The family of this 459-nucleotide sequence from Panurus biarmicus is "Vertebrate telomerase RNA".
Gene Ontology terms of the family: telomerase activity, telomere maintenance via telomerase and telomerase catalytic core complex.
Rfam describes the family as follows. Telomerase is a ribonucleoprotein reverse transcriptase that synthesises telomeric DNA. Telomerase RNAs differ greatly in sequence and structure between vertebrates, ciliates and yeasts, but they share a 5' pseudoknot structure close to the template sequence. Vertebrate telomerase RNAs have a 3' H/ACA snoRNA-like domain.
Clan: Telomerase clan.
A reference for the family is Chen et al. (2000), "Secondary structure of vertebrate telomerase RNA", Cell.
The family has 37 seed sequences and 523 matches in Rfam 15.1.
RNA sequence: CCGUGCCGGGGUGGGCAGGCCCUGUGGCCAUCUAACCCUAAUGGCGGCUGCGCCCCUCACGCCCGCCCGCUGUUUUACUCGCUGACUUUCAGCGGGCAAAGGGAGCGGCCCAAGGGAAGGGGGGGUGGGGUUGGGGACAAAAGAGUUCCGGCCUCAAAAAAAGCCAGCGAGGGGGAUCCUCACCCCGGCCCACCCUGGGGUCCCUGUCCCUCCUCCGCAACCAGGGACGGUCCCGCCCUCGCCCCUCGUGGAGGCCGCGGUCGGCAGGCUCAGCGCCACUACCGCCGCGAAGAGUUCGUCUCUGUCAGCCUCGGCGGCGGUCGGGACCAGAGGGCCGGCCCGCCCUUCCUGGGCAGCCGGGGGACCCCAGCAGAACAAAACGGGCGCGGCGCCGCCGGGCGCUGAGCAGCCGCGGCUCCCUAAGACGUGGAGUGCGCGGUCGGCGCCGCCCCGACACCC
Number, nucleotide and partner (000 for none) at each position: 001c000002c000003g000004u000005g189006c188007c187008g186009g185010g184011g183012u182013g181014g180015g179016c000017a177018g000019g000020c175021c174022c173023u172024g000025u000026g000027g000028c000029c000030a000031u000032c000033u000034a000035a000036c000037c000038c000039u000040a000041a000042u000043g000044g000045c000046g000047g000048c000049u000050g000051c000052g106053c105054c000055c103056c102057u000058c000059a000060c000061g000062c000063c000064c000065g097066c096067c095068c094069g093070c092071u091072g090073u000074u000075u000076u000077a000078c000079u000080c000081g168082c167083u166084g165085a000086c163087u161088u160089u159090c072091a071092g070093c069094g068095g067096g066097c065098a000099a000100a000101g000102g056103g055104a000105g053106c052107g000108g000109c000110c000111c000112a000113a000114g000115g000116g000117a000118a000119g000120g000121g000122g000123g000124g000125g000126u000127g000128g000129g000130g000131u000132u000133g000134g000135g000136g000137a000138c000139a000140a000141a000142a000143g000144a000145g000146u000147u000148c000149c000150g000151g000152c000153c000154u000155c000156a000157a000158a000159a089160a088161a087162a000163g086164c000165c084166a083167g082168c081169g000170a000171g000172g023173g022174g021175g020176a000177u017178c000179c015180u014181c013182a012183c011184c010185c009186c008187g007188g006189c005190c000191c000192a000193c000194c000195c370196u369197g368198g367199g366200g365201u364202c000203c000204c000205u000206g000207u000208c000209c000210c000211u000212c000213c000214u000215c000216c000217g000218c000219a000220a000221c000222c000223a000224g000225g340226g339227a000228c337229g336230g335231u334232c333233c332234c000235g000236c000237c325238c324239u323240c316241g315242c314243c313244c000245c000246u000247c000248g000249u000250g000251g000252a000253g000254g000255c000256c289257g288258c287259g286260g285261u000262c284263g283264g282265c000266a000267g277268g276269c275270u000271c000272a000273g000274c000275g269276c268277c267278a000279c000280u000281a000282c264283c263284g262285c260286c259287g258288c257289g256290a000291a303292g302293a301294g300295u000296u000297c000298g000299u000300c294301u293302c292303u291304g000305u000306c000307a000308g000309c000310c000311u000312c000313g243314g242315c241316g240317g000318c000319g000320g000321u000322c000323g239324g238325g237326a000327c000328c000329a000330g000331a000332g233333g232334g231335c230336c229337g228338g000339c226340c225341c000342g000343c000344c000345c000346u000347u000348c000349c000350u000351g000352g000353g000354c000355a000356g000357c000358c000359g000360g000361g000362g000363g000364a201365c200366c199367c198368c197369a196370g195371c000372a000373g000374a000375a000376c000377a000378a000379a000380a000381c000382g451383g450384g449385c448386g000387c000388g447389g446390c445391g444392c443393c442394g000395c000396c000397g000398g000399g000400c000401g000402c000403u000404g000405a000406g000407c000408a000409g000410c439411c438412g437413c436414g435415g000416c000417u432418c000419c430420c429421u000422a000423a000424g000425a000426c000427g000428u000429g420430g419431a000432g417433u000434g000435c414436g413437c412438g411439g410440u000441c000442g393443g392444c391445g390446c389447c388448g385449c384450c383451c382452c000453g000454a000455c000456a000457c000458c000459c000